[Rfam]
The family of this 84-nucleotide sequence from Arachis duranensis is "Small nucleolar RNA snoR14". The source organism's lineage runs through Eukaryota, Streptophytina, Spermatophyta, Dalbergieae and Arachis. Clan: SNORD110 clan. A search with the family's covariance model found it, with a score of 82 bits. Rfam classes the family as a C/D-box small nucleolar RNA. Rfam links the family to the GO terms RNA processing and nucleolus.

RNA sequence: GCGAUGUGACGAAAGAAAUUCAUUGUCUGUCAAUCCGCUGAUACUUGCGUGAUGUACACAUGAAUCUCGACAGGCUCUGAUCGC
Numbered sequence: 001g002c003g004a005u006g007u008g009a010c011g012a013a014a015g016a017a018a019u020u021c022a023u024u025g026u027c028u029g030u031c032a033a034u035c036c037g038c039u040g041a042u043a044c045u046u047g048c049g050u051g052a053u054g055u056a057c058a059c060a061u062g063a064a065u066c067u068c069g070a071c072a073g074g075c076u077c078u079g080a081u082c083g084c
Stems, first nucleotide, its partner, number of pairs: 001084004